This 77-nucleotide RNA from Octopus sinensis belongs to the Rfam family "mir-9/mir-79 microRNA precursor family". A search with the family's covariance model found it, with a score of 62 bits. Lineage of the source: Eukaryota > Opisthokonta > Protostomia > Octopodidae > Octopus. Its family is annotated with RISC complex and miRNA-mediated post-transcriptional gene silencing in the Gene Ontology. The family has 214 seed sequences and 5,647 matches in Rfam 15.1.

RNA sequence: CACGACAUCUCUUCGGUUAUCUGGCUAUUUGAAACGAUAGCGUUUUCAAAUAGCCAGAUAACCGAAGAGAUGUCGUG
Numbered sequence: 001c002a003c004g005a006c007a008u009c010u011c012u013u014c015g016g017u018u019a020u021c022u023g024g025c026u027a028u029u030u031g032a033a034a035c036g037a038u039a040g041c042g043u044u045u046u047c048a049a050a051u052a053g054c055c056a057g058a059u060a061a062c063c064g065a066a067g068a069g070a071u072g073u074c075g076u077g
Base pairs, nucleotide, nucleotide: 001077002076003075004074005073007071008070009069010068011067012066013065014064015063016062017061018060019059020058021057022056023055024054025053026052028050029049030048031047032046033045